[Rfam]
RNA sequence: UGCAGUCAAGUCAAAUUCAGCACCUACUCCUGUCGUAGCAGGGGCUGGCUCAGAUGGCUGCAACAGCAAGCUUUGCCAUAGUAGCUCAUAGGCCCCCGAUCCCCUGUCCUGGGGCCUGGGGAUCAGUUGGCUACAGACACUG
Numbered sequence: 001u002g003c004a005g006u007c008a009a010g011u012c013a014a015a016u017u018c019a020g021c022a023c024c025u026a027c028u029c030c031u032g033u034c035g036u037a038g039c040a041g042g043g044g045c046u047g048g049c050u051c052a053g054a055u056g057g058c059u060g061c062a063a064c065a066g067c068a069a070g071c072u073u074u075g076c077c078a079u080a081g082u083a084g085c086u087c088a089u090a091g092g093c094c095c096c097c098g099a100u101c102c103c104c105u106g107u108c109c110u111g112g113g114g115c116c117u118g119g120g121g122a123u124c125a126g127u128u129g130g131c132u133a134c135a136g137a138c139a140c141u142g
Stems, first nucleotide, its partner, number of pairs: 002061004018047004023042003027038002081134006093121003098116001
The family of this 142-nucleotide RNA sequence from Trichechus manatus is "Small nucleolar RNA SNORA5". Its Rfam clan is "SNORA5 clan". Taxonomically the source falls in Trichechus manatus (Eukaryota, Craniata, Vertebrata, Sarcopterygii). Rfam's curators write: ACA5 is a member of the H/ACA class of snoRNA that guide the sites of modification of uridines to pseudouridines. Rfam links the family to the GO terms RNA processing and nucleolus. The family's consensus secondary structure was predicted with RNAfold.